Source information:
Small nucleolar RNA SNORD19: a 74-nucleotide RNA from Cuculus canorus. For this family Rfam cites "RNomics: an experimental approach that identifies 201 candidates for novel, small, non-messenger RNAs in mouse" (Huttenhofer et al., EMBO J, 2001). By type it is a C/D-box small nucleolar RNA. Clan: SNORD19 clan. Rfam links the family to the GO terms RNA processing and nucleolus. Rfam 15.1 lists 1,431 matches to the family in 609 species.
[Rfam]
RNA sequence: GAGAAAUGAGGAUACCGAUUUUGUCUUACUUCUGUAGUGAAGACUUCAGAUCCAACUCUGAUCUCACGCUUAAG
Numbered sequence: 001g002a003g004a005a006a007u008g009a010g011g012a013u014a015c016c017g018a019u020u021u022u023g024u025c026u027u028a029c030u031u032c033u034g035u036a037g038u039g040a041a042g043a044c045u046u047c048a049g050a051u052c053c054a055a056c057u058c059u060g061a062u063c064u065c066a067c068g069c070u071u072a073a074g
Base pairs, nucleotide, nucleotide: 001065002064003063004062